[Rfam]
RNA sequence: UAGCAGGCUGGAGGCUGUAAUCCACGGUCGGUAGCGUG
Numbered sequence: 001u002a003g004c005a006g007g008c009u010g011g012a013g014g015c016u017g018u019a020a021u022c023c024a025c026g027g028u029c030g031g032u033a034g035c036g037u038g
Stems, first nucleotide, its partner, number of pairs: 009024004
JUMPstart RNA: a 38-nucleotide RNA sequence from Aeromonas hydrophila. Rfam 15.1 lists 288 matches to the family in 230 species. The sequence is in the family's curated seed alignment.